[Rfam]
RNA sequence: UAGGGGAGUCAGGGCCAGGAGCUCCCCCCUGAGCCCCGGGUAACUCUGCAAGUAGGGGAGCA
Numbered sequence: 001u002a003g004g005g006g007a008g009u010c011a012g013g014g015c016c017a018g019g020a021g022c023u024c025c026c027c028c029c030u031g032a033g034c035c036c037c038g039g040g041u042a043a044c045u046c047u048g049c050a051a052g053u054a055g056g057g058g059a060g061c062a
Stems, first nucleotide, its partner, number of pairs: 008041003012036004016031004022060006
About this RNA
The family of this 62-nucleotide RNA sequence from Marmota monax is "Gag/pol translational readthrough site". Rfam classes the family as a cis-regulatory element. Lineage of the source: Eukaryota > Metazoa > Sciuridae > Marmotini > Marmota. Rfam links the family to the GO term viral translational readthrough.